[Rfam]
RNA sequence: CUCUUAUUCCGAGUAGGCAGAGGGACAGGCCCGAUGAAGCCCAGCAACCGGUCGCAUACGGCACGGUGCUAACCUGCAGAAUAACGAGGAUGAUCUUCUCGUUAUUCUGAUAAUAAGAG
Numbered sequence: 001c002u003c004u005u006a007u008u009c010c011g012a013g014u015a016g017g018c019a020g021a022g023g024g025a026c027a028g029g030c031c032c033g034a035u036g037a038a039g040c041c042c043a044g045c046a047a048c049c050g051g052u053c054g055c056a057u058a059c060g061g062c063a064c065g066g067u068g069c070u071a072a073c074c075u076g077c078a079g080a081a082u083a084a085c086g087a088g089g090a091u092g093a094u095c096u097u098c099u100c101g102u103u104a105u106u107c108u109g110a111u112a113a114u115a116a117g118a119g
Stems, first nucleotide, its partner, number of pairs: 001119008013042001016041003022032003026076004043070004048066002051062004077109014
The record is a 119-nucleotide RNA sequence from Sporolactobacillus inulinus, which matches "SAM riboswitch aptamer (S box leader)" in Rfam. A search with the family's covariance model found it, with a score of 67 bits.